[Rfam]
RNA sequence: UCGCGUUAAGGAUUGAAGUGGAAAUCCUUUUGAAAGCUGAGCUUGCGAAGCUCAAAAGAUUGAAGCAAAAAGCCUGACCCGCA
Numbered sequence: 001u002c003g004c005g006u007u008a009a010g011g012a013u014u015g016a017a018g019u020g021g022a023a024a025u026c027c028u029u030u031u032g033a034a035a036g037c038u039g040a041g042c043u044u045g046c047g048a049a050g051c052u053c054a055a056a057a058g059a060u061u062g063a064a065g066c067a068a069a070a071a072g073c074c075u076g077a078c079c080c081g082c083a
Stems, first nucleotide, its partner, number of pairs: 009075003013071002018066002023061004029056005036051003

Notes
The record is an 83-nucleotide sequence, which matches "Flavo-1 RNA" in Rfam. By type it is a small RNA. The sequence is in the family's curated seed alignment.